[Rfam]
RNA sequence: CUCAAGACCGGAGCUCUCCGGAAAAUAAGAAGGUCACCCGUGUCAGGGUA
Numbered sequence: 001c002u003c004a005a006g007a008c009c010g011g012a013g014c015u016c017u018c019c020g021g022a023a024a025a026u027a028a029g030a031a032g033g034u035c036a037c038c039c040g041u042g043u044c045a046g047g048g049u050a
Stems, first nucleotide, its partner, number of pairs: 008021005036049004